RNA: Glycine riboswitch aptamer
Organism: Paractinoplanes atraurantiacus
RNA sequence: CGAACCGCUGCGGGAGAGUUCCCGCCAGUGCGGGGCGCCGAAGGAGCAACUUCUCCCUCAGAAUCUCUCAGGCCCCGGUACCGCGGCGGUCAG
Numbered sequence: 001c002g003a004a005c006c007g008c009u010g011c012g013g014g015a016g017a018g019u020u021c022c023c024g025c026c027a028g029u030g031c032g033g034g035g036c037g038c039c040g041a042a043g044g045a046g047c048a049a050c051u052u053c054u055c056c057c058u059c060a061g062a063a064u065c066u067c068u069c070a071g072g073c074c075c076c077g078g079u080a081c082c083g084c085g086g087c088g089g090u091c092a093g
Stems, first nucleotide, its partner, number of pairs: 006088008020035004037073003040069002044067003050061002